This 90-nucleotide sequence from Vitis vinifera belongs to the Rfam family "small nucleolar RNA snoR114".
The base pairs follow the family's consensus structure, which was predicted with RNAalifold.
On this family, see Chen and Wu, Nucleic Acids Res 2009: "Mining small RNA sequencing data: a new approach to identify small nucleolar RNAs in Arabidopsis".
The family's RNA type in Rfam is C/D-box small nucleolar RNA.
Gene Ontology terms of the family: nucleolus and RNA processing.
RNA sequence: GAGCGAUGAUGAAUCCCAGUGCUCACCGUGCGAUCAUGGGUCGAUCACACCCAUCUGAUAUCCAGAUGAGAACACAGCACCUCUGAGCUC
Numbered sequence: 001g002a003g004c005g006a007u008g009a010u011g012a013a014u015c016c017c018a019g020u021g022c023u024c025a026c027c028g029u030g031c032g033a034u035c036a037u038g039g040g041u042c043g044a045u046c047a048c049a050c051c052c053a054u055c056u057g058a059u060a061u062c063c064a065g066a067u068g069a070g071a072a073c074a075c076a077g078c079a080c081c082u083c084u085g086a087g088c089u090c
Stems, first nucleotide, its partner, number of pairs: 001090004